[Rfam]
RNA sequence: UUAAAAUCGAUCUUUAUACCGUAGAUAGCAGGUGCGUAGAUGCUUAAUAUCCUGCCGAGGUUUGUGAAUAUAUAGUGAUAAUAUGAUUGCGGAUUGUUAUUUAUCACUUCAUCAUGCCUCCAUGUCUACAUGGAGGCAUUUUUAAUCAUCCAU
Numbered sequence: 001u002u003a004a005a006a007u008c009g010a011u012c013u014u015u016a017u018a019c020c021g022u023a024g025a026u027a028g029c030a031g032g033u034g035c036g037u038a039g040a041u042g043c044u045u046a047a048u049a050u051c052c053u054g055c056c057g058a059g060g061u062u063u064g065u066g067a068a069u070a071u072a073u074a075g076u077g078a079u080a081a082u083a084u085g086a087u088u089g090c091g092g093a094u095u096g097u098u099a100u101u102u103a104u105c106a107c108u109u110c111a112u113c114a115u116g117c118c119u120c121c122a123u124g125u126c127u128a129c130a131u132g133g134a135g136g137c138a139u140u141u142u143u144a145a146u147c148a149u150c151c152a153u
Stems, first nucleotide, its partner, number of pairs: 028055005034043003115138010

The family of this 153-nucleotide sequence from Terrihalobacillus insolitus is "Ribosomal protein L10 leader".
The match comes from Rfam's covariance-model search (76 bits).
Rfam's curators write: This family is a putative r-protein leader autoregulatory structure found in B. subtilis and other low-GC Gram-positive bacteria.
Gene Ontology term of the family: regulation of gene expression.
Pairs were carried over by alignment from the consensus structure, which was predicted with CMfinder.
The organism belongs to Terrihalobacillus, within Bacteria.
It is annotated as a cis-regulatory leader.